[Rfam]
RNA sequence: AGCUUUUAUCAGGUAUCGGCAAUUGUCUUUCAUUAGGGGGAAGAAUGAAGAAGAAUACUAAAAAUAGCAGACUUAUAAACUGAGACAGUUUGCGUGCUUGAACUUACUUUUUCAUUUUACUUCAACCUCUAAGGAGGGCAGUCACUGGCGUGCCUACUUUACUUCUUUUAAGUGAUAGAACAGCAAACAGGCAAU
Numbered sequence: 001a002g003c004u005u006u007u008a009u010c011a012g013g014u015a016u017c018g019g020c021a022a023u024u025g026u027c028u029u030u031c032a033u034u035a036g037g038g039g040g041a042a043g044a045a046u047g048a049a050g051a052a053g054a055a056u057a058c059u060a061a062a063a064a065u066a067g068c069a070g071a072c073u074u075a076u077a078a079a080c081u082g083a084g085a086c087a088g089u090u091u092g093c094g095u096g097c098u099u100g101a102a103c104u105u106a107c108u109u110u111u112u113c114a115u116u117u118u119a120c121u122u123c124a125a126c127c128u129c130u131a132a133g134g135a136g137g138g139c140a141g142u143c144a145c146u147g148g149c150g151u152g153c154c155u156a157c158u159u160u161a162c163u164u165c166u167u168u169u170a171a172g173u174g175a176u177a178g179a180a181c182a183g184c185a186a187a188c189a190g191g192c193a194a195u
Stems, first nucleotide, its partner, number of pairs: 002020003007015003029136003033132007040123004047116002050113001052112003069091004074087001092107001094105001096103001145190003151185003157178002160174005

Shown here is a 195-nucleotide RNA from Myotis davidii, a member of the family "Connexin-43 internal ribosome entry site (IRES)". The family has 14 seed sequences and 657 matches in Rfam 15.1. For this family Rfam cites "Connexin43 mRNA contains a functional internal ribosome entry site" (Schiavi et al., FEBS Lett, 1999). Rfam links the family to the GO term ribosome binding. The match comes from Rfam's covariance-model search (114 bits). Rfam describes the family as follows. This family represents the connexin-43 internal ribosome entry site (IRES) which allows cap independent translation during conditions such as heat shock and stress. The family's consensus secondary structure is taken from published work.